RNA sequence: ACCUCAUACUUACCUACUAUAUAGUAGCUGAAAUACAUGUACCCCGUCUACUAUAUAGUAGGUAAGUAUGUGGUUU
Numbered sequence: 001a002c003c004u005c006a007u008a009c010u011u012a013c014c015u016a017c018u019a020u021a022u023a024g025u026a027g028c029u030g031a032a033a034u035a036c037a038u039g040u041a042c043c044c045c046g047u048c049u050a051c052u053a054u055a056u057a058g059u060a061g062g063u064a065a066g067u068a069u070g071u072g073g074u075u076u
Base pairs, nucleotide, nucleotide: 001074002073003072005070006069007068008067009066010065011064012063013062014061015060017058018057019056020055021054022053023052024051025050026049027048029046030045034041035040
RNA: mir-7563 microRNA precursor family
Organism: Ameiurus melas